Rfam assigns this 181-nucleotide RNA sequence from Gambusia affinis to the family "Small nucleolar RNA SNORA23". Rfam 15.1 lists 1,092 matches to the family in 632 species. The members of this family belong to the H/ACA class of snoRNAs which are thought to guide the sites of modification of uridines to pseudouridines. Taxonomically the source falls in Gambusia (Eukaryota, Vertebrata, Euacanthomorphacea, Percomorphaceae). Pairs were carried over by alignment from the consensus structure, which was predicted with RNAalifold. A reference for the family is Huttenhofer et al. (2001), "RNomics: an experimental approach that identifies 201 candidates for novel, small, non-messenger RNAs in mouse", EMBO J.
RNA sequence: GGUGAAUGGUGUGCACAGUGUAGGUCUGUGUUACGUGGUGUUGCUAGGCUGCGUUUUGCAGUCCUGGCCACAGCGCUCACUCCGCACCUGCAGCCAUAGAGCAAUCGGGGAUCAUAGUACUGGUCUUUGAGGUCUUCUCAGACAUCUGAUCAUGGACCAGCCUCCAAAGUCUCCAACAAAA
Numbered sequence: 001g002g003u004g005a006a007u008g009g010u011g012u013g014c015a016c017a018g019u020g021u022a023g024g025u026c027u028g029u030g031u032u033a034c035g036u037g038g039u040g041u042u043g044c045u046a047g048g049c050u051g052c053g054u055u056u057u058g059c060a061g062u063c064c065u066g067g068c069c070a071c072a073g074c075g076c077u078c079a080c081u082c083c084g085c086a087c088c089u090g091c092a093g094c095c096a097u098a099g100a101g102c103a104a105u106c107g108g109g110g111a112u113c114a115u116a117g118u119a120c121u122g123g124u125c126u127u128u129g130a131g132g133u134c135u136u137c138u139c140a141g142a143c144a145u146c147u148g149a150u151c152a153u154g155g156a157c158c159a160g161c162c163u164c165c166a167a168a169g170u171c172u173c174c175a176a177c178a179a180a181a
Stems, first nucleotide, its partner, number of pairs: 013091003030080002035077001036075002039072003043068005050060003107174005120160006127154001128152002132143004